[Rfam]
RNA sequence: GAGCUGUGAGGAUAACUGCGCCUGCGAUGGUAGGGUCUAUCGCUCCUCUCUGAUCUUAGGAUGAGACAAUGCGCAUCUGAGCUC
Numbered sequence: 001g002a003g004c005u006g007u008g009a010g011g012a013u014a015a016c017u018g019c020g021c022c023u024g025c026g027a028u029g030g031u032a033g034g035g036u037c038u039a040u041c042g043c044u045c046c047u048c049u050c051u052g053a054u055c056u057u058a059g060g061a062u063g064a065g066a067c068a069a070u071g072c073g074c075a076u077c078u079g080a081g082c083u084c
Base pairs, nucleotide, nucleotide: 001084002083003082004081